[Rfam]
Rfam assigns this 418-nucleotide RNA sequence from Debaryomyces hansenii to the family "RNase MRP". Clan: RNaseP clan. By type it is a ribozyme. Rfam describes the family as follows. RNase MRP is an enzymatically active ribonucleoprotein with two distinct roles in eukaryotes. The match comes from Rfam's covariance-model search (92 bits).
RNA sequence: UUCAUGGGCAAAGAUUCGUUUUCGAAGCUUUCAAAAAGAUUCUAGUAGUCAUUAAUGCUUUGGGGAAAGUCUCCGGCCAUAUAUGCGGAAACGUAACAGAUUCAUCCAUCUGUUUGAAACUAUAGCAAGUUGAAUGCUAGGUGAUCAUUGAGUAGUUGCUUGUUCUUCUUGCUAAUUCCUUUUGAAUUCUACUGCUCUGUUAAGGGGCAGCUCUGGCAUUCAAGAAUUUGUCAUACUAUUCAUGUUACUGAUUAUCCGGCUUUAUUUGAUUUUAUUAUAGUUUUAUCCUGCCCAUUAGGUUUUUCCUGGUGGUGUUUCUUUGAAAUUCGGCAAUGGGAUGUUGAUUCCUAAACGAUAGUUAUAACGAAUGAUUAUCAUUUUGGUAAUUAACCCAAUGGAGCUUAUUCUUGAACCAUGA
Numbered sequence: 001u002u003c004a005u006g007g008g009c010a011a012a013g014a015u016u017c018g019u020u021u022u023c024g025a026a027g028c029u030u031u032c033a034a035a036a037a038g039a040u041u042c043u044a045g046u047a048g049u050c051a052u053u054a055a056u057g058c059u060u061u062g063g064g065g066a067a068a069g070u071c072u073c074c075g076g077c078c079a080u081a082u083a084u085g086c087g088g089a090a091a092c093g094u095a096a097c098a099g100a101u102u103c104a105u106c107c108a109u110c111u112g113u114u115u116g117a118a119a120c121u122a123u124a125g126c127a128a129g130u131u132g133a134a135u136g137c138u139a140g141g142u143g144a145u146c147a148u149u150g151a152g153u154a155g156u157u158g159c160u161u162g163u164u165c166u167u168c169u170u171g172c173u174a175a176u177u178c179c180u181u182u183u184g185a186a187u188u189c190u191a192c193u194g195c196u197c198u199g200u201u202a203a204g205g206g207g208c209a210g211c212u213c214u215g216g217c218a219u220u221c222a223a224g225a226a227u228u229u230g231u232c233a234u235a236c237u238a239u240u241c242a243u244g245u246u247a248c249u250g251a252u253u254a255u256c257c258g259g260c261u262u263u264a265u266u267u268g269a270u271u272u273u274a275u276u277a278u279a280g281u282u283u284u285a286u287c288c289u290g291c292c293c294a295u296u297a298g299g300u301u302u303u304u305c306c307u308g309g310u311g312g313u314g315u316u317u318c319u320u321u322g323a324a325a326u327u328c329g330g331c332a333a334u335g336g337g338a339u340g341u342u343g344a345u346u347c348c349u350a351a352a353c354g355a356u357a358g359u360u361a362u363a364a365c366g367a368a369u370g371a372u373u374a375u376c377a378u379u380u381u382g383g384u385a386a387u388u389a390a391c392c393c394a395a396u397g398g399a400g401c402u403u404a405u406u407c408u409u410g411a412a413c414c415a416u417g418a
Base pairs, nucleotide, nucleotide: 002418003417004416005415006414007413009410010409011408014369015368016367017366018365019364022063023062024061025060026059027058028057038050039049040048041047067403068402069401071400072399073398074397084095085094086093087092096113097112098111099110100109101108268328269327271325272324273323277321279319280318288314291311298307299306371387372386373385374384375383376382